[Rfam]
Nucleotides: 205
Stems, first nucleotide, its partner, number of pairs: 001061009012052002016047006023039001026037002070138008078129001085126004089120005096113001100112001102110002140200001142198006156186003161178003
Number, partner (000 for none) and nucleotide at each position: 001061u002060c003059c004058a005057g006056c007055a008054g009053u010000a011000a012052g013051u014000c015000a016047g017046c018045u019044a020043u021042c022000c023039g024000u025000u026037g027036c028000u029000u030000u031000u032000c033000c034000g035000u036027g037026c038000u039023c040000a041000u042021g043020a044019u045018a046017g047016u048000g049000u050000u051013a052012c053009a054008c055007u056006g057005c058004u059003g060002g061001g062000a063000g064000a065000g066000a067000a068000a069000a070138g071137u072136g073135c074134u075133g076132u077131u078129g079000c080000u081000a082000u083000a084000a085126g086125c087124u088123g089120g090119c091118u092117a093116c094000c095000a096113c097000u098000g099000u100112c101000a102110c103109c104000g105000u106000u107000c108000u109103g110102g111000g112100g113096g114000c115000a116093g117092u118091a119090g120089u121000g122000c123088c124087a125086g126085u127000g128000u129078c130000a131077g132076a133075c134074a135073g136072u137071g138070c139000u140200g141000u142198g143197c144196u145195u146194c147193c148000u149000u150000g151000a152000g153000a154000g155000u156186g157185c158184a159000c160000a161178u162177g163176g164000u165000a166000u167000g168000c169000g170000c171000c172000a173000u174000g175000g176163c177162c178161a179000u180000u181000u182000g183000g184158u185157g186156c187000u188000a189000g190000u191000c192000u193147g194146g195145a196144a197143g198142c199000u200140c201000a202000c203000a204000u205000g
Shown here is a 205-nucleotide RNA sequence from Geotrypetes seraphini, a member of the family "Small nucleolar RNA SNORA74". U19 belongs to the H/ACA class of snoRNAs. snoRNAs bind a number of proteins (including dyskerin, Gar1p and Nop10p in the case of the H/ACA class) to form snoRNP complexes. Clan: SNORA74 clan. The match comes from Rfam's covariance-model search (91 bits). Lineage of the source: Eukaryota > Metazoa > Craniata > Vertebrata > Geotrypetes. Rfam links the family to the GO terms nucleolus and RNA processing. The base pairs follow the family's consensus structure, which was predicted with PFOLD.